This 69-nucleotide sequence from Rhodamnia argentea belongs to the Rfam family "Plastid-clpP 5UTR RNA". For this family Rfam cites "Retrograde signaling in plants: A critical review focusing on the GUN pathway and beyond" (Richter et al., Plant Commun, 2023). Rfam describes the family as follows. Plastid clpP is a non-coding RNA (ncRNA) recognised in plastids. It was found in the prime untranslated region (5UTR) of a protease complex subunit (clpP) in plastids, suggesting a posible cis-regulatory function. A search with the family's covariance model found it, with a score of 85 bits. By type it is a cis-regulatory element. The family has 343 seed sequences and 2,105 matches in Rfam 15.1.

RNA sequence: AAUUCGGUUCGUAGGAACAAAUAGAAGCAGAUUUAUUCUAUAUCCGAUAAAUACCAAUACGCAAUGGGG
Numbered sequence: 001a002a003u004u005c006g007g008u009u010c011g012u013a014g015g016a017a018c019a020a021a022u023a024g025a026a027g028c029a030g031a032u033u034u035a036u037u038c039u040a041u042a043u044c045c046g047a048u049a050a051a052u053a054c055c056a057a058u059a060c061g062c063a064a065u066g067g068g069g
Stems, first nucleotide, its partner, number of pairs: 004021001007018004043068003052059002